[Rfam]
RNA sequence: GUGGAUAUGAUGAUCCUUUCCCCACAUGAUCGACUAAGAUUAUGAAUUGCGAAUUUCUUACAUUUUCUCUUUCGGGAAAAUCAAGCCUGAGAUUCUGAUCCAC
Numbered sequence: 001g002u003g004g005a006u007a008u009g010a011u012g013a014u015c016c017u018u019u020c021c022c023c024a025c026a027u028g029a030u031c032g033a034c035u036a037a038g039a040u041u042a043u044g045a046a047u048u049g050c051g052a053a054u055u056u057c058u059u060a061c062a063u064u065u066u067c068u069c070u071u072u073c074g075g076g077a078a079a080a081u082c083a084a085g086c087c088u089g090a091g092a093u094u095c096u097g098a099u100c101c102a103c
Base pairs, nucleotide, nucleotide: 001103002102003101004100005099